[Rfam]
RNA sequence: CACCGGCGCCUGAUCACGCCGCGGUUUGAUGAAGGCUCGUCCCCCGCCGACAUCAAACAUGGACAAAGGCCUAAUCCCCCCUCUCCGGGCCUUUGUUCUGCUAUUGCAAGCCGUCAUGGCCCGCCCCCAGGCCAUGGCGGCCUUGC
Numbered sequence: 001c002a003c004c005g006g007c008g009c010c011u012g013a014u015c016a017c018g019c020c021g022c023g024g025u026u027u028g029a030u031g032a033a034g035g036c037u038c039g040u041c042c043c044c045c046g047c048c049g050a051c052a053u054c055a056a057a058c059a060u061g062g063a064c065a066a067a068g069g070c071c072u073a074a075u076c077c078c079c080c081c082u083c084u085c086c087g088g089g090c091c092u093u094u095g096u097u098c099u100g101c102u103a104u105u106g107c108a109a110g111c112c113g114u115c116a117u118g119g120c121c122c123g124c125c126c127c128c129a130g131g132c133c134a135u136g137g138c139g140g141c142c143u144u145g146c
Stems, first nucleotide, its partner, number of pairs: 025057007034048003061098011110142001111140011
Alphaproteobacterial sRNA ar7: a 146-nucleotide RNA from Rhizobium sp. RU36D. For this family Rfam cites "A survey of sRNA families in alpha-proteobacteria" (del Val et al., RNA Biol, 2012). Taxonomically the source falls in Rhizobium (Bacteria, Pseudomonadota, Hyphomicrobiales, Rhizobiaceae). The pairing is the family consensus, mapped onto this sequence. It is annotated as a small RNA.